[Rfam]
RNA: mir-3017 microRNA precursor family
Organism: Acyrthosiphon pisum
RNA sequence: CCGUGUUCUGUGACUGACUGGGCUGGCGGGUGUCCGCCGGUCUGCCACAGAACACGGGA
Numbered sequence: 001c002c003g004u005g006u007u008c009u010g011u012g013a014c015u016g017a018c019u020g021g022g023c024u025g026g027c028g029g030g031u032g033u034c035c036g037c038c039g040g041u042c043u044g045c046c047a048c049a050g051a052a053c054a055c056g057g058g059a
Stems, first nucleotide, its partner, number of pairs: 001057012014044001016042003021038002025034003